The record is a 351-nucleotide RNA sequence from Polymorphobacter multimanifer, which matches "Alphaproteobacteria transfer-messenger RNA" in Rfam. It scores 207 bits against the family's covariance model. Rfam links the family to the GO term RNA catabolic process. A reference for the family is Williams and Bartel (1996), "Phylogenetic analysis of tmRNA secondary structure", RNA. Rfam describes the family as follows. Bacterial tmRNA, also known as 10Sa RNA or SsrA, is named for its dual tRNA and mRNA-like properties.
RNA sequence: CUGCUUGCACCUGGUCGCCGCAAUCCCUAUAUCGAGGGGGCUCGGGAAACCGGGCUAUGGCAAUACAGGAUGGCGUGAAAUAGACGCAGCGGACCCGGGGGCAGUACCCGGCGGCUCCACCAUCAUUCCCCCCGGUUGUCGCGGGGAUGUCUGGGGCCGAACCAGGAUCGACGUGUGUUCAAAGACGAUCAUCUUUGCCCGGCCUGAAUGCGCCGUUAAACCGUUCAAAACACCAUAAAUGCCAACGACAACGAGGCAUUCGCAAUCGCAGCGUAACACAAGGUCCUCACGGACUUAGUUACACUGGCCGAAAGCGCGGCUGGGCCGAGCCGGGCAACAGAAUCGGACACC
Numbered sequence: 001c002u003g004c005u006u007g008c009a010c011c012u013g014g015u016c017g018c019c020g021c022a023a024u025c026c027c028u029a030u031a032u033c034g035a036g037g038g039g040g041c042u043c044g045g046g047a048a049a050c051c052g053g054g055c056u057a058u059g060g061c062a063a064u065a066c067a068g069g070a071u072g073g074c075g076u077g078a079a080a081u082a083g084a085c086g087c088a089g090c091g092g093a094c095c096c097g098g099g100g101g102c103a104g105u106a107c108c109c110g111g112c113g114g115c116u117c118c119a120c121c122a123u124c125a126u127u128c129c130c131c132c133c134g135g136u137u138g139u140c141g142c143g144g145g146g147a148u149g150u151c152u153g154g155g156g157c158c159g160a161a162c163c164a165g166g167a168u169c170g171a172c173g174u175g176u177g178u179u180c181a182a183a184g185a186c187g188a189u190c191a192u193c194u195u196u197g198c199c200c201g202g203c204c205u206g207a208a209u210g211c212g213c214c215g216u217u218a219a220a221c222c223g224u225u226c227a228a229a230a231c232a233c234c235a236u237a238a239a240u241g242c243c244a245a246c247g248a249c250a251a252c253g254a255g256g257c258a259u260u261c262g263c264a265a266u267c268g269c270a271g272c273g274u275a276a277c278a279c280a281a282g283g284u285c286c287u288c289a290c291g292g293a294c295u296u297a298g299u300u301a302c303a304c305u306g307g308c309c310g311a312a313a314g315c316g317c318g319g320c321u322g323g324g325c326c327g328a329g330c331c332g333g334g335c336a337a338c339a340g341a342a343u344c345g346g347a348c349a350c351c
Stems, first nucleotide, its partner, number of pairs: 040055005059199005070192003074187003085177003089174003095111005112159007200215004205227003317332004323348001325346004